A member of the RNA family "mir-981 microRNA precursor family" from Nasonia vitripennis, 81 nucleotides long. A search with the family's covariance model found it, with a score of 63 bits. Its family is annotated with miRNA-mediated post-transcriptional gene silencing and RISC complex in the Gene Ontology. The family has 17 seed sequences and 180 matches in Rfam 15.1.
RNA sequence: ACGCAGACGUACGGGUUUCGUGACAGGCGAGCCGUUUGAAUUAACGUGGUUCGUUGUCGACGAAACUUGCACGAUUUGCAA
Numbered sequence: 001a002c003g004c005a006g007a008c009g010u011a012c013g014g015g016u017u018u019c020g021u022g023a024c025a026g027g028c029g030a031g032c033c034g035u036u037u038g039a040a041u042u043a044a045c046g047u048g049g050u051u052c053g054u055u056g057u058c059g060a061c062g063a064a065a066c067u068u069g070c071a072c073g074a075u076u077u078g079c080a081a
Base pairs, nucleotide, nucleotide: 003079004078005077006076012069013068014067015066016065017064018063019062020061029052030051031050032049033048